[Rfam]
RNA sequence: UUCCGGCUUUCCAACAGCCGGGGUUACUGAAGAGGCACACCUUCAUUGCCGGAAGUGCGGUUGGGAUUCCCCCUCCAAUCCAUGGCAGACAAAACCGAACUAUGCCGUUCCUGCGGCGUUGGUUCAUUAUCUGCGCUAUCCAGCGCUUGCAAAGGUU
Numbered sequence: 001u002u003c004c005g006g007c008u009u010u011c012c013a014a015c016a017g018c019c020g021g022g023g024u025u026a027c028u029g030a031a032g033a034g035g036c037a038c039a040c041c042u043u044c045a046u047u048g049c050c051g052g053a054a055g056u057g058c059g060g061u062u063g064g065g066a067u068u069c070c071c072c073c074u075c076c077a078a079u080c081c082a083u084g085g086c087a088g089a090c091a092a093a094a095c096c097g098a099a100c101u102a103u104g105c106c107g108u109u110c111c112u113g114c115g116g117c118g119u120u121g122g123u124u125c126a127u128u129a130u131c132u133g134c135g136c137u138a139u140c141c142a143g144c145g146c147u148u149g150c151a152a153a154g155g156u157u
Stems, first nucleotide, its partner, number of pairs: 001023008034050004057136003084096002104119002108115001
A member of the RNA family "speF leader" from Rhizobium album, 157 nucleotides long. NCBI's taxonomy places the organism under Bacteria, Pseudomonadota, Alphaproteobacteria, Rhizobiaceae, Rhizobium. The family's RNA type in Rfam is cis-regulatory leader. This family is a putative regulatory RNA structure that is found upstream of the speF gene encoding ornithine decarboxylase in Agrobacterium tumefaciens and other alpha-proteobacteria. Its family is annotated with regulation of gene expression in the Gene Ontology.